[Rfam]
This 184-nucleotide sequence from Mycobacterium intracellulare belongs to the Rfam family "c-di-AMP riboswitch aptamer (ydaO/yuaA leader)". A search with the family's covariance model found it, with a score of 56 bits. This family represents a conserved RNA structure found upstream of the ydaO and yuaA genes in Bacillus subtilis and related genes in other bacteria. Its family is annotated with cyclic-di-AMP binding and regulation of gene expression in the Gene Ontology. Taxonomically the source falls in Mycobacterium intracellulare (Bacteria, Actinomycetes, Mycobacteriaceae, Mycobacterium).
RNA sequence: AAUAGGCGGGGGCCACCAACUCAUGGAUGGAGACGGGGGACCCACCGGUCCACCGUGAUCGGACUGGGGCCGUUCGCGGCCCCUAGGGGUGAAGCCGGCGUCGUCCUCGACGGCCGCGCCGGCCGGGUGGCCUCUCCAACCCGAACCCGACAGCUGACCUCGCAGGCGCGUGACGAGAGAGGAA
Numbered sequence: 001a002a003u004a005g006g007c008g009g010g011g012g013c014c015a016c017c018a019a020c021u022c023a024u025g026g027a028u029g030g031a032g033a034c035g036g037g038g039g040a041c042c043c044a045c046c047g048g049u050c051c052a053c054c055g056u057g058a059u060c061g062g063a064c065u066g067g068g069g070c071c072g073u074u075c076g077c078g079g080c081c082c083c084u085a086g087g088g089g090u091g092a093a094g095c096c097g098g099c100g101u102c103g104u105c106c107u108c109g110a111c112g113g114c115c116g117c118g119c120c121g122g123c124c125g126g127g128u129g130g131c132c133u134c135u136c137c138a139a140c141c142c143g144a145a146c147c148c149g150a151c152a153g154c155u156g157a158c159c160u161c162g163c164a165g166g167c168g169c170g171u172g173a174c175g176a177g178a179g180a181g182g183a184a
Base pairs, nucleotide, nucleotide: 012167013166014165020032021031022030034162035161036160037159038158043086087148088147089146095122096121097120098119099118100117101116125142126141127140128139